[Rfam]
RNA sequence: UUUGGGACUGUAAACAUCCUUGACUGGAAGCUGUAAAGUUCUGUAAAGAGCUUUUAGUCAGAUGUUUACAGCGGCAGG
Numbered sequence: 001u002u003u004g005g006g007a008c009u010g011u012a013a014a015c016a017u018c019c020u021u022g023a024c025u026g027g028a029a030g031c032u033g034u035a036a037a038g039u040u041c042u043g044u045a046a047a048g049a050g051c052u053u054u055u056a057g058u059c060a061g062a063u064g065u066u067u068a069c070a071g072c073g074g075c076a077g078g
Base pairs, nucleotide, nucleotide: 002077003076004075008071009070010069011068012067013066014065015064016063017062018061023058024057025056026055027054028053029052030051031050032049
The record is a 78-nucleotide RNA sequence from Microcaecilia unicolor, which matches "mir-30 microRNA precursor family" in Rfam. Rfam's curators write: This family consists of the mammalian microRNA (miRNA) precursor mir-30a. A search with the family's covariance model found it, with a score of 67 bits.